[Rfam]
RNA: Vascular endothelial growth factor (VEGF) IRES A
RNA sequence: GCUAGCUCGGGCCUGGAGAAGCCGGGGCCCGAGAAGAGAGGGGAGAAAGAGAAGGAAGAGGAGAGGGGGCCGCAGUGGGCGCUCGGCUCUCGGGAGCCGGGCUCAUGGACGGGUGAGGCGGCGGUGUGCGCAGACAGUGCUCCAGCCGCGCGCGCCCCAGGCCCCGGCCCGGGCCUCGGUUCCAGAAGGGAGAGGAGCCCGCCAAGGCCGGCAAGAGAGCGGCUGCCUCGCAGUCCGAGCCGGAGAGGGAGCGCGACGCGCGCGGCCCCGGACGGCCUCUGAAACCAUGAACUU
Numbered sequence: 001g002c003u004a005g006c007u008c009g010g011g012c013c014u015g016g017a018g019a020a021g022c023c024g025g026g027g028c029c030c031g032a033g034a035a036g037a038g039a040g041g042g043g044a045g046a047a048a049g050a051g052a053a054g055g056a057a058g059a060g061g062a063g064a065g066g067g068g069g070c071c072g073c074a075g076u077g078g079g080c081g082c083u084c085g086g087c088u089c090u091c092g093g094g095a096g097c098c099g100g101g102c103u104c105a106u107g108g109a110c111g112g113g114u115g116a117g118g119c120g121g122c123g124g125u126g127u128g129c130g131c132a133g134a135c136a137g138u139g140c141u142c143c144a145g146c147c148g149c150g151c152g153c154g155c156c157c158c159a160g161g162c163c164c165c166g167g168c169c170c171g172g173g174c175c176u177c178g179g180u181u182c183c184a185g186a187a188g189g190g191a192g193a194g195g196a197g198c199c200c201g202c203c204a205a206g207g208c209c210g211g212c213a214a215g216a217g218a219g220c221g222g223c224u225g226c227c228u229c230g231c232a233g234u235c236c237g238a239g240c241c242g243g244a245g246a247g248g249g250a251g252c253g254c255g256a257c258g259c260g261c262g263c264g265g266c267c268c269c270g271g272a273c274g275g276c277c278u279c280u281g282a283a284a285c286c287a288u289g290a291a292c293u294u
Stems, first nucleotide, its partner, number of pairs: 002036002006033003010029003013024001015022001051294002054286002058279004066269008075261003086254002089251003098237006106230003111158003115155001118153003121149004125144002128140004160227003166224002169222003176211004181207002185202001188198001